[Rfam]
RNA sequence: AAGAAUAAAAAGCCGAAGUUUACGGUGAUGAGACGCGGGGGAACCAUUCUUCGGGGCAAAUUUUUAGCAUUGGAUAGUGUCGUGUUUGGGCUGCCUGCCCGGGUCCUGCAGCCAACCUCGUGGGCUUAUUGGCUUUUGAGU
Number, nucleotide and partner (000 for none) at each position: 001a000002a000003g000004a000005a000006u000007a000008a000009a000010a000011a126012g125013c124014c123015g000016a000017a000018g034019u033020u032021u000022a000023c000024g000025g000026u000027g000028a000029u000030g000031a000032g020033a019034c018035g121036c120037g119038g118039g117040g116041g000042a000043a000044c000045c053046a000047u000048u000049c000050u000051u000052c000053g045054g106055g105056g104057c000058a000059a000060a000061u000062u000063u084064u000065u082066a000067g000068c000069a000070u000071u000072g000073g000074a000075u000076a000077g000078u000079g000080u000081c000082g065083u000084g063085u000086u000087u000088g100089g099090g098091c097092u000093g000094c000095c000096u000097g091098c090099c089100c088101g000102g000103g000104u056105c055106c054107u000108g000109c000110a000111g000112c000113c000114a000115a000116c040117c039118u038119c037120g036121u035122g000123g014124g013125c012126u011127u000128a000129u000130u000131g000132g000133c000134u000135u000136u000137u000138g000139a000140g000141u000

Notes:
A member of the RNA family "c-di-AMP riboswitch aptamer (ydaO/yuaA leader)" from Desulfocucumis palustris, 141 nucleotides long. Rfam links the family to the GO terms regulation of gene expression and cyclic-di-AMP binding. The base pairs follow the family's consensus structure. It scores 46 bits against the family's covariance model. Rfam describes the family as follows. This family represents a conserved RNA structure found upstream of the ydaO and yuaA genes in Bacillus subtilis and related genes in other bacteria.